[Rfam]
RNA sequence: AGUGGGGGUGAGAAACUGGCUUGGCUCUGCGUAACGACAGUCAGUCUUUUUCUCUCUCCUAUC
Numbered sequence: 001a002g003u004g005g006g007g008g009u010g011a012g013a014a015a016c017u018g019g020c021u022u023g024g025c026u027c028u029g030c031g032u033a034a035c036g037a038c039a040g041u042c043a044g045u046c047u048u049u050u051u052c053u054c055u056c057u058c059c060u061a062u063c
Stems, first nucleotide, its partner, number of pairs: 002062007010054004015049001018046004024041003028037001
The family of this 63-nucleotide RNA sequence from Vespula pensylvanica is "mir-14 microRNA precursor family". Rfam links the family to the GO terms miRNA-mediated post-transcriptional gene silencing and RISC complex. The literature on the family includes a 2009 paper in BMC Genomics by Li et al., "Direct sequencing and expression analysis of a large number of miRNAs in Aedes aegypti and a multi-species survey of novel mosquito miRNAs". A search with the family's covariance model found it, with a score of 60 bits. The base pairs follow the family's consensus structure, which was predicted with RNAalifold.